[Rfam]
RNA sequence: CCUAAAUAAGGCAAUGAUGUCUGCCCUAAACCGCUUUAAGAAGCUGAUGACGUCUACUUUAGA
Numbered sequence: 001c002c003u004a005a006a007u008a009a010g011g012c013a014a015u016g017a018u019g020u021c022u023g024c025c026c027u028a029a030a031c032c033g034c035u036u037u038a039a040g041a042a043g044c045u046g047a048u049g050a051c052g053u054c055u056a057c058u059u060u061a062g063a
Base pairs, nucleotide, nucleotide: 010025011024012023013022016054017053018052019051020050021049033044034043035042036041

The record is a 63-nucleotide sequence from Sphingobacterium sp. ML3W, which matches "Fluoride riboswitch aptamer (crcB RNA motif)" in Rfam. Lineage of the source: Bacteria > Pseudomonadati > Sphingobacteriia > Sphingobacteriaceae > Sphingobacterium. The family's consensus secondary structure is taken from published work.